[Rfam]
Shown here is a 53-nucleotide sequence from Methylobacterium radiotolerans, a member of the family "ffh sRNA".
The base pairs follow the family's consensus structure, which is taken from published work.
RNA sequence: GAGGCCGGAGGUCAACGCCCGACAGCGCGUCCGCGCCCUCGGGCGCGAUGGGC
Numbered sequence: 001g002a003g004g005c006c007g008g009a010g011g012u013c014a015a016c017g018c019c020c021g022a023c024a025g026c027g028c029g030u031c032c033g034c035g036c037c038c039u040c041g042g043g044c045g046c047g048a049u050g051g052g053c
Stems, first nucleotide, its partner, number of pairs: 016045007025036004
Dot-bracket structure: ...............(((((((..((((....))))..)))))))........